[Rfam]
The record is a 237-nucleotide RNA sequence from Pitta sordida, which matches "Small nucleolar RNA SNORD17" in Rfam. Rfam's curators write: The snoRNA HBI-43 belongs to the C/D family of snoRNAs, guiding 2'O-ribose methylation at position U3797 of the 28S rRNA. Pseudouridylation in position U3797 is predicted to be guided by the H/ACA snoRNA ACA48. The source organism's lineage runs through Eukaryota, Chordata, Tetrapoda, Amniota and Pitta.
RNA sequence: GUGAGGUGAUGACACAGUUUAUCCAUUCUCUGAGUGCAGUGGUGCUGCCCUCCUGCAGCACCCUGAUUCCUGUCCUAGGGUCUGGGUGCUGUGCAGCCUCCAGAGAUCCUGCAGUCUCCCUGGGGGCUGCUGUGGUGUGUGGCUGGCUGCCUGCAGGAGGGGAGCAGUGCUGGCAGGGCUGGAGGCCCUCUUUGAGGGGCUCCACCCUCACUGGGACGAGGGAUGGUGUCUGAUCAC
Numbered sequence: 001g002u003g004a005g006g007u008g009a010u011g012a013c014a015c016a017g018u019u020u021a022u023c024c025a026u027u028c029u030c031u032g033a034g035u036g037c038a039g040u041g042g043u044g045c046u047g048c049c050c051u052c053c054u055g056c057a058g059c060a061c062c063c064u065g066a067u068u069c070c071u072g073u074c075c076u077a078g079g080g081u082c083u084g085g086g087u088g089c090u091g092u093g094c095a096g097c098c099u100c101c102a103g104a105g106a107u108c109c110u111g112c113a114g115u116c117u118c119c120c121u122g123g124g125g126g127c128u129g130c131u132g133u134g135g136u137g138u139g140u141g142g143c144u145g146g147c148u149g150c151c152u153g154c155a156g157g158a159g160g161g162g163a164g165c166a167g168u169g170c171u172g173g174c175a176g177g178g179c180u181g182g183a184g185g186c187c188c189u190c191u192u193u194g195a196g197g198g199g200c201u202c203c204a205c206c207c208u209c210a211c212u213g214g215g216a217c218g219a220g221g222g223a224u225g226g227u228g229u230c231u232g233a234u235c236a237c
Stems, first nucleotide, its partner, number of pairs: 010236003017229002020226001023222002026220003030215002034211002039174002042171001043169006049161002051158007059088005065082001068080004093150006106136002111130008176209002178206001180204004187198002
Rfam links the family to the GO terms RNA processing and nucleolus.
The literature on the family includes a 2001 paper in EMBO J by Huttenhofer et al., "RNomics: an experimental approach that identifies 201 candidates for novel, small, non-messenger RNAs in mouse".